[Rfam]
RNA sequence: AUUUAUCACUAGGGGAGCUGAAAUGGCUGAGAGGGGAGCAAUCCCGACCCUUUAAACCUGAACUAGGUAAUUCUAGCGUAGGAAAGUGUUUAUUGCGUUUA
Numbered sequence: 001a002u003u004u005a006u007c008a009c010u011a012g013g014g015g016a017g018c019u020g021a022a023a024u025g026g027c028u029g030a031g032a033g034g035g036g037a038g039c040a041a042u043c044c045c046g047a048c049c050c051u052u053u054a055a056a057c058c059u060g061a062a063c064u065a066g067g068u069a070a071u072u073c074u075a076g077c078g079u080a081g082g083a084a085a086g087u088g089u090u091u092a093u094u095g096c097g098u099u100u101a
Base pairs, nucleotide, nucleotide: 007088008087009086010085011051012050013049014048017027018026019025020024034045035044036043037042057082058081059080060079063076064075065074066073
RNA: TPP riboswitch aptamer (THI element)
Organism: Schnuerera ultunensis